[Rfam]
Record summary: Fluoride riboswitch aptamer (crcB RNA motif): a 77-nucleotide RNA from Streptomyces sp. GMY02. Rfam links the family to the GO terms positive regulation of gene expression and response to fluoride. The source organism's lineage runs through Bacteria, Bacillati, Kitasatosporales, Streptomycetaceae and Streptomyces.
RNA sequence: GAAGACGAGGGCGAUGAGGCUCGCCGCAACCGCACGGACCGGGGACGACCGACCGUGCUGAUGGCUUCUGAAUGGAC
Numbered sequence: 001g002a003a004g005a006c007g008a009g010g011g012c013g014a015u016g017a018g019g020c021u022c023g024c025c026g027c028a029a030c031c032g033c034a035c036g037g038a039c040c041g042g043g044g045a046c047g048a049c050c051g052a053c054c055g056u057g058c059u060g061a062u063g064g065c066u067u068c069u070g071a072a073u074g075g076a077c
Stems, first nucleotide, its partner, number of pairs: 010025004016068006032058006
Dot-bracket structure: .........[[[[..((((((]]]]......((((((...............))))))....)))))).........